[Rfam]
About this RNA
The record is a 208-nucleotide RNA sequence from Skermania sp. ID1734, which matches "c-di-AMP riboswitch aptamer (ydaO/yuaA leader)" in Rfam. Gene Ontology terms of the family: regulation of gene expression and cyclic-di-AMP binding. Lineage of the source: Bacteria > Bacillati > Actinomycetota > Gordoniaceae > Skermania.
RNA sequence: ACUCGUGAGGUGCCAGCCCAGAUCGAGGGACGAGGACGGGGGACCCACGUUCCCCCCGGACGACGAGAGGAAGGCCACAUGAUCGCUGUGAUUGCAUCGAUUCGCCCCGGCCCCUCUCUUGGGGUGAAGCCGACGCCAAGCGCGACGGCCGGGCUACCUCUCUGCCCGAACCCGACAGCUGACCUCGUAGGCGCGUAGGAGAGGAAAU
Numbered sequence: 001a002c003u004c005g006u007g008a009g010g011u012g013c014c015a016g017c018c019c020a021g022a023u024c025g026a027g028g029g030a031c032g033a034g035g036a037c038g039g040g041g042g043a044c045c046c047a048c049g050u051u052c053c054c055c056c057c058g059g060a061c062g063a064c065g066a067g068a069g070g071a072a073g074g075c076c077a078c079a080u081g082a083u084c085g086c087u088g089u090g091a092u093u094g095c096a097u098c099g100a101u102u103c104g105c106c107c108c109g110g111c112c113c114c115u116c117u118c119u120u121g122g123g124g125u126g127a128a129g130c131c132g133a134c135g136c137c138a139a140g141c142g143c144g145a146c147g148g149c150c151g152g153g154c155u156a157c158c159u160c161u162c163u164g165c166c167c168g169a170a171c172c173c174g175a176c177a178g179c180u181g182a183c184c185u186c187g188u189a190g191g192c193g194c195g196u197a198g199g200a201g202a203g204g205a206a207a208u
Stems, first nucleotide, its partner, number of pairs: 011193004018035002036188006046121002122173003130148003151167004